[Rfam]
Nucleotides: 067
Stems, first nucleotide, its partner, number of pairs: 001018004006014003028045007
Number, partner (000 for none) and nucleotide at each position: 001018g002017g003016c004015c005000a006014c007013c008012u009000u010000c011000g012008g013007g014006g015004g016003g017002c018001u019000a020000u021000c022000u023000a024000c025000a026000u027000a028045g029044c030043g031042a032041g033040g034039c035000u036000g037000a038000u039034g040033c041032c042031u043030c044029g045028c046000a047000c048000u049000g050000c051000u052000a053000a054000a055000c056000g057000g058000a059000a060000g061000a062000c063000a064000g065000a066000a067000a